[Rfam]
RNA sequence: AAUUCCGGGUAAUCGCGGUCAUCUUUUGGUGGCUGAGGAAAGUCCAUGCUCGCACAAGCUGAGAUGCUUGUAGUGUUCGUGCUUAGUGAAAAAAUAAGCUAAGGCAGUCUACGGAUUGACGGCAGAAAAAAAGGCUAAAGUUUAAUCCAAGCCUGAGUAUUCUUGAAAGUGCCACAGAGACGAUACUCUAUAGGAAACUGUAGAGGUGGAACGGGUAAACCCCACGAGCGAGCAACCCAAACCUUGGUAGGGGCACUCUUUUUAAGGAAAUGAACAGCAAAAAGGGGCAGAAAUGCAGAUAGAUGAUUACCCUAGUAAGAUAGCUCCUGACUUUCUUACUAGACAGAACAUGGCUUAUAGGA
Numbered sequence: 001a002a003u004u005c006c007g008g009g010u011a012a013u014c015g016c017g018g019u020c021a022u023c024u025u026u027u028g029g030u031g032g033c034u035g036a037g038g039a040a041a042g043u044c045c046a047u048g049c050u051c052g053c054a055c056a057a058g059c060u061g062a063g064a065u066g067c068u069u070g071u072a073g074u075g076u077u078c079g080u081g082c083u084u085a086g087u088g089a090a091a092a093a094a095u096a097a098g099c100u101a102a103g104g105c106a107g108u109c110u111a112c113g114g115a116u117u118g119a120c121g122g123c124a125g126a127a128a129a130a131a132a133g134g135c136u137a138a139a140g141u142u143u144a145a146u147c148c149a150a151g152c153c154u155g156a157g158u159a160u161u162c163u164u165g166a167a168a169g170u171g172c173c174a175c176a177g178a179g180a181c182g183a184u185a186c187u188c189u190a191u192a193g194g195a196a197a198c199u200g201u202a203g204a205g206g207u208g209g210a211a212c213g214g215g216u217a218a219a220c221c222c223c224a225c226g227a228g229c230g231a232g233c234a235a236c237c238c239a240a241a242c243c244u245u246g247g248u249a250g251g252g253g254c255a256c257u258c259u260u261u262u263u264a265a266g267g268a269a270a271u272g273a274a275c276a277g278c279a280a281a282a283a284g285g286g287g288c289a290g291a292a293a294u295g296c297a298g299a300u301a302g303a304u305g306a307u308u309a310c311c312c313u314a315g316u317a318a319g320a321u322a323g324c325u326c327c328u329g330a331c332u333u334u335c336u337u338a339c340u341a342g343a344c345a346g347a348a349c350a351u352g353g354c355u356u357a358u359a360g361g362a
Stems, first nucleotide, its partner, number of pairs: 004362003007358001008311007016035006040356003044353005049232005054071006077227005082103006104120001105118005121222002124163004132154004140147001169220002171216003186205008236252003256286007287296003313341008
RNA: Bacterial RNase P class B